[Rfam]
RNA sequence: GGAGGAUUAGCUCAGCUGGGAGAGCACUUGCCUUACAAGCAAGGGGUCGGCGGUUCGAUCCCGUCAUCCUCCA
Numbered sequence: 001g002g003a004g005g006a007u008u009a010g011c012u013c014a015g016c017u018g019g020g021a022g023a024g025c026a027c028u029u030g031c032c033u034u035a036c037a038a039g040c041a042a043g044g045g046g047u048c049g050g051c052g053g054u055u056c057g058a059u060c061c062c063g064u065c066a067u068c069c070u071c072c073a
Base pairs, nucleotide, nucleotide: 001072002071003070004069005068006067007066010025011024012023013022027043028042029041030040031039049065050064051063052062053061
Description
Rfam assigns this 73-nucleotide RNA sequence from Bacillus sp. to the family "tRNA". The source organism's lineage runs through Bacteria, Bacillota, Bacilli, Bacillaceae and Bacillus. Transfer RNA (tRNA) molecules are approximately 80 nucleotides in length. By type it is a transfer RNA.